[Rfam]
RNA sequence: AAAUGAGAUAGAGGCGCGGAUGCGAUGGAACCACAGGAGCCGGCAGGCUGUGAAUGUGGGGAGGGCAAGUCCGCCGAACUUUUCAUCCAGGCGUGGAUGGAAGGUGGGGCCGUGGGAAACACCCACGGGACUGUCUGCGGUGAAGAUGCCGCAGGUGCGCUAUCCGCUUA
Numbered sequence: 001a002a003a004u005g006a007g008a009u010a011g012a013g014g015c016g017c018g019g020a021u022g023c024g025a026u027g028g029a030a031c032c033a034c035a036g037g038a039g040c041c042g043g044c045a046g047g048c049u050g051u052g053a054a055u056g057u058g059g060g061g062a063g064g065g066c067a068a069g070u071c072c073g074c075c076g077a078a079c080u081u082u083u084c085a086u087c088c089a090g091g092c093g094u095g096g097a098u099g100g101a102a103g104g105u106g107g108g109g110c111c112g113u114g115g116g117a118a119a120c121a122c123c124c125a126c127g128g129g130a131c132u133g134u135c136u137g138c139g140g141u142g143a144a145g146a147u148g149c150c151g152c153a154g155g156u157g158c159g160c161u162a163u164c165c166g167c168u169u170a
Stems, first nucleotide, its partner, number of pairs: 007164005016074006024066001031059005078105012106132002110128007134155007
Dot-bracket structure: ......(((((....((((((..(......(((((...................)))))......)..))))))...((((((((((((....))))))))))))((..(((((((.....)))))))..)).(((((((........)))))))....)))))......
The record is a 170-nucleotide RNA from Oscillibacter sp. PC13, which matches "Lysine riboswitch aptamer" in Rfam. Riboswitches are metabolite binding domains within certain messenger RNAs that serve as precision sensors for their corresponding targets. Allosteric rearrangement of mRNA structure is mediated by ligand binding, and this results in modulation of gene expression. This family includes riboswitches that sense lysine in a number of genes involved in lysine metabolism, including lysC. The match comes from Rfam's covariance-model search (83 bits). NCBI's taxonomy places the organism under Bacteria, Bacillati, Clostridia, Oscillospiraceae, Oscillibacter.